Annotation: Small nucleolar RNA snoR97: a 107-nucleotide RNA sequence from Amborella trichopoda. The source organism's lineage runs through Eukaryota, Tracheophyta, Spermatophyta, Amborellaceae and Amborella. Its family is annotated with RNA processing and nucleolus in the Gene Ontology. It is annotated as an H/ACA-box small nucleolar RNA. The literature on the family includes a 2002 paper in Curr Biol by Marker et al., "Experimental RNomics: identification of 140 candidates for small non-messenger RNAs in the plant Arabidopsis thaliana". Pairs were carried over by alignment from the consensus structure, which was predicted with WAR. It scores 83 bits against the family's covariance model.
[Rfam]
RNA sequence: CUAUCCUAAUGAGCAUAAAGGCUGAAAAACUCAAAAAAUCAAUGUGUUGUCAUCAGCUUUUUCCUUGCUUUUCAUGGGGAACAGAGUUAAACAACAACACAACAUCA
Dot-bracket structure: ..........................................(((((((.....((((((.((((...........))))..))))))......)))))))......
Numbered sequence: 001c002u003a004u005c006c007u008a009a010u011g012a013g014c015a016u017a018a019a020g021g022c023u024g025a026a027a028a029a030c031u032c033a034a035a036a037a038a039u040c041a042a043u044g045u046g047u048u049g050u051c052a053u054c055a056g057c058u059u060u061u062u063c064c065u066u067g068c069u070u071u072u073c074a075u076g077g078g079g080a081a082c083a084g085a086g087u088u089a090a091a092c093a094a095c096a097a098c099a100c101a102a103c104a105u106c107a
Stems, first nucleotide, its partner, number of pairs: 043101007055088006062080004